RNA sequence: CGGUUAAAACGCUCGUAGUUGGAUAACGAGGGUAAAAUAAUUAUAUGAGCAAAUGCUCAUUGAUUAUUUUGCUCUUUUUAUUACAAGGGUCAAUACUUUGCUUAAUUGAAUUGUAUUGAAUACUUGUAUAGCGUGCCUUGAAUAAAGCACAGUGCUCAAAGCAAGCGUAACGCUAGAAUGUUAUAGCAUGGAACGAAUAGAUUGACCUGAAUCAGUUUGUUGGUAAAAAGUUACGCAAGUAACUAACCUGAAACGGGUCCUGAUUAAAAGGGGCAUUUGAGGAUGUUAGUACUUGGUGGCGAGAGGUGAAAUUCUUAGACCCACCAAAGACUCACUAUUGCGAAGGCAUUCAUCAAGAAUGUUUUCAUUAAUCAAGAACGAAAGUUGGAGAAUCGAAGACGAUCAGAUACCGUCCUAGUUCCAUACAGUAAACUAUGCCAGCUUGAGAUUAGCUCGGUAAACGAGCCAAGUUGGUCUCUCCGUGAAAACAAGCUUUCGGGUUCCGGGGGGAGUACGGUCGCAAGUCUGAAACUUAAAGAAAU
Numbered sequence: 001c002g003g004u005u006a007a008a009a010c011g012c013u014c015g016u017a018g019u020u021g022g023a024u025a026a027c028g029a030g031g032g033u034a035a036a037a038u039a040a041u042u043a044u045a046u047g048a049g050c051a052a053a054u055g056c057u058c059a060u061u062g063a064u065u066a067u068u069u070u071g072c073u074c075u076u077u078u079u080a081u082u083a084c085a086a087g088g089g090u091c092a093a094u095a096c097u098u099u100g101c102u103u104a105a106u107u108g109a110a111u112u113g114u115a116u117u118g119a120a121u122a123c124u125u126g127u128a129u130a131g132c133g134u135g136c137c138u139u140g141a142a143u144a145a146a147g148c149a150c151a152g153u154g155c156u157c158a159a160a161g162c163a164a165g166c167g168u169a170a171c172g173c174u175a176g177a178a179u180g181u182u183a184u185a186g187c188a189u190g191g192a193a194c195g196a197a198u199a200g201a202u203u204g205a206c207c208u209g210a211a212u213c214a215g216u217u218u219g220u221u222g223g224u225a226a227a228a229a230g231u232u233a234c235g236c237a238a239g240u241a242a243c244u245a246a247c248c249u250g251a252a253a254c255g256g257g258u259c260c261u262g263a264u265u266a267a268a269a270g271g272g273g274c275a276u277u278u279g280a281g282g283a284u285g286u287u288a289g290u291a292c293u294u295g296g297u298g299g300c301g302a303g304a305g306g307u308g309a310a311a312u313u314c315u316u317a318g319a320c321c322c323a324c325c326a327a328a329g330a331c332u333c334a335c336u337a338u339u340g341c342g343a344a345g346g347c348a349u350u351c352a353u354c355a356a357g358a359a360u361g362u363u364u365u366c367a368u369u370a371a372u373c374a375a376g377a378a379c380g381a382a383a384g385u386u387g388g389a390g391a392a393u394c395g396a397a398g399a400c401g402a403u404c405a406g407a408u409a410c411c412g413u414c415c416u417a418g419u420u421c422c423a424u425a426c427a428g429u430a431a432a433c434u435a436u437g438c439c440a441g442c443u444u445g446a447g448a449u450u451a452g453c454u455c456g457g458u459a460a461a462c463g464a465g466c467c468a469a470g471u472u473g474g475u476c477u478c479u480c481c482g483u484g485a486a487a488a489c490a491a492g493c494u495u496u497c498g499g500g501u502u503c504c505g506g507g508g509g510g511a512g513u514a515c516g517g518u519c520g521c522a523a524g525u526c527u528g529a530a531a532c533u534u535a536a537a538g539a540a541a542u
Stems, first nucleotide, its partner, number of pairs: 001505003009502001011379001013377002018372003270366004274361005282354004288332002293327007303314003340347002384426002386423004394418001398414004437501003440494003445478002449474006456467002482489002507534003516527002519524001

A member of the RNA family "Eukaryotic small subunit ribosomal RNA" from Ceratonova shasta, 542 nucleotides of a longer RNA. Its family is annotated with ribosome and structural constituent of ribosome in the Gene Ontology. Clan: SSU clan. Rfam 15.1 lists 75,755 matches to the family in 2,556 species. Pairs were carried over by alignment from the consensus structure, which is taken from published work.